[Rfam]
RNA sequence: UCCAGCAGUAGUCAGCUAUCCGGACAGAACCAUUCCUGUGAUGGUGUUACACUGCUGGGAGAGGAAUAUCUUGUCAAUUCUUCAUCCAGUUGCCUAUGUCACUGUUCUGGUAGCAUGUGGCACUGGUACAAGGCAGGACUUUGCUUCCUUGAGAGUGUGCUAAGCAUUCACUUUGGCUGCUUAGUUCAAGUUAGGGAGCACACAUG
Numbered sequence: 001u002c003c004a005g006c007a008g009u010a011g012u013c014a015g016c017u018a019u020c021c022g023g024a025c026a027g028a029a030c031c032a033u034u035c036c037u038g039u040g041a042u043g044g045u046g047u048u049a050c051a052c053u054g055c056u057g058g059g060a061g062a063g064g065a066a067u068a069u070c071u072u073g074u075c076a077a078u079u080c081u082u083c084a085u086c087c088a089g090u091u092g093c094c095u096a097u098g099u100c101a102c103u104g105u106u107c108u109g110g111u112a113g114c115a116u117g118u119g120g121c122a123c124u125g126g127u128a129c130a131a132g133g134c135a136g137g138a139c140u141u142u143g144c145u146u147c148c149u150u151g152a153g154a155g156u157g158u159g160c161u162a163a164g165c166a167u168u169c170a171c172u173u174u175g176g177c178u179g180c181u182u183a184g185u186u187c188a189a190g191u192u193a194g195g196g197a198g199c200a201c202a203c204a205u206g
Base pairs, nucleotide, nucleotide: 001059002058003057004056005055006054007053008052009051011050012049015045016044017043018042019041020040021038022036023035024034069138070137071136072135073134074133075132084127085126086125089121090120094117101111102110103109142200143199144198145197146196147195148194157187159185161183162182163181164180165179166178